[Rfam]
RNA sequence: AAGUGAAAAAGGCAAAUCAUGGGAAAUCAUGAGACGCAAAGCCAUGGGCCUGUACCACACAUUAUAUGUUGGAUGGCAGCCGGUUACCACG
Numbered sequence: 001a002a003g004u005g006a007a008a009a010a011g012g013c014a015a016a017u018c019a020u021g022g023g024a025a026a027u028c029a030u031g032a033g034a035c036g037c038a039a040a041g042c043c044a045u046g047g048g049c050c051u052g053u054a055c056c057a058c059a060c061a062u063u064a065u066a067u068g069u070u071g072g073a074u075g076g077c078a079g080c081c082g083g084u085u086a087c088c089a090c091g
Stems, first nucleotide, its partner, number of pairs: 012037002017032006040085004046081002048077003055071001057069002
The family of this 91-nucleotide RNA from Clostridium cellulovorans is "c-di-GMP-I riboswitch aptamer". Pairs were carried over by alignment from the consensus structure, which is taken from published work. A search with the family's covariance model found it, with a score of 69 bits. For this family Rfam cites "Riboswitches in Eubacteria Sense the Second Messenger Cyclic Di-GMP" (Sudarsan et al., Science, 2008).